[Rfam]
RNA: Bacterial RNase P class A
Organism: Schaalia zhouxuedongae
RNA sequence: UGAGCCGGUCGGGCGGCCGCGGGCGCGAGAGCACCUGAGGAACGUCCGGGCACCACAGGGCAGGAUGAUGGCUAACGGCCACCCGGGGUGACCCGCGGGCUAGUGCCACAGAAAAGAAACCGCCGCCUUCGGGCGGUAAGGGUGAAAAGGUGGGGUAAGAGCCCACCAGCAACGCAGGUGACUGCGUUGGCUCGGUAAACCCCAUUCGGUGCAAGACCAAGCAGCAAGCAGGGCGGCCCGUUCAAUGCUUGCGGGUAGGUUGCGUGAGGUCUGCGGUAACGCAGAUCCAAGAUAGAUGGUCGCCACCGCAGACGCGGUAACGCACUGCGAGACAGAACCCGGCGUACAGACCGACUCAUCCG
Numbered sequence: 001u002g003a004g005c006c007g008g009u010c011g012g013g014c015g016g017c018c019g020c021g022g023g024c025g026c027g028a029g030a031g032c033a034c035c036u037g038a039g040g041a042a043c044g045u046c047c048g049g050g051c052a053c054c055a056c057a058g059g060g061c062a063g064g065a066u067g068a069u070g071g072c073u074a075a076c077g078g079c080c081a082c083c084c085g086g087g088g089u090g091a092c093c094c095g096c097g098g099g100c101u102a103g104u105g106c107c108a109c110a111g112a113a114a115a116g117a118a119a120c121c122g123c124c125g126c127c128u129u130c131g132g133g134c135g136g137u138a139a140g141g142g143u144g145a146a147a148a149g150g151u152g153g154g155g156u157a158a159g160a161g162c163c164c165a166c167c168a169g170c171a172a173c174g175c176a177g178g179u180g181a182c183u184g185c186g187u188u189g190g191c192u193c194g195g196u197a198a199a200c201c202c203c204a205u206u207c208g209g210u211g212c213a214a215g216a217c218c219a220a221g222c223a224g225c226a227a228g229c230a231g232g233g234c235g236g237c238c239c240g241u242u243c244a245a246u247g248c249u250u251g252c253g254g255g256u257a258g259g260u261u262g263c264g265u266g267a268g269g270u271c272u273g274c275g276g277u278a279a280c281g282c283a284g285a286u287c288c289a290a291g292a293u294a295g296a297u298g299g300u301c302g303c304c305a306c307c308g309c310a311g312a313c314g315c316g317g318u319a320a321c322g323c324a325c326u327g328c329g330a331g332a333c334a335g336a337a338c339c340c341g342g343c344g345u346a347c348a349g350a351c352c353g354a355c356u357c358a359u360c361c362g
Stems, first nucleotide, its partner, number of pairs: 001358004006353005011347001012304007020037004025032002042345003046342005051211004058239004063207005069081004083097001084095004098202002103200002105196003120141002122137006149167006169191001170189008215261004224252006231243004268287008